[Rfam]
RNA sequence: AGAUGAGGUAGAGGAGCAGUAAAAAUCAGUAAUUUUACUCUUGCAAAUCCAGCUUAAACUUAAAAUGAAAGGGUUUACUGCCGAAGUGUAUUUUUUUAGGAUUAAAAAAAUCACUGGGACUGUAUAAAAAAUAUACAGGACUGUCAUAGUUAAAUUAACUAUGUUGUGCUAUCUCAUGA
Numbered sequence: 001a002g003a004u005g006a007g008g009u010a011g012a013g014g015a016g017c018a019g020u021a022a023a024a025a026u027c028a029g030u031a032a033u034u035u036u037a038c039u040c041u042u043g044c045a046a047a048u049c050c051a052g053c054u055u056a057a058a059c060u061u062a063a064a065a066u067g068a069a070a071g072g073g074u075u076u077a078c079u080g081c082c083g084a085a086g087u088g089u090a091u092u093u094u095u096u097u098a099g100g101a102u103u104a105a106a107a108a109a110a111u112c113a114c115u116g117g118g119a120c121u122g123u124a125u126a127a128a129a130a131a132u133a134u135a136c137a138g139g140a141c142u143g144u145c146a147u148a149g150u151u152a153a154a155u156u157a158a159c160u161a162u163g164u165u166g167u168g169c170u171a172u173c174u175c176a177u178g179a
Stems, first nucleotide, its partner, number of pairs: 006174006016081008032066006085115004091109006116142002120138007145163006

The record is a 179-nucleotide RNA sequence from Halanaerobium praevalens, which matches "Lysine riboswitch aptamer" in Rfam. Gene Ontology term of the family: lysine biosynthetic process. The base pairs follow the family's consensus structure, which is taken from published work.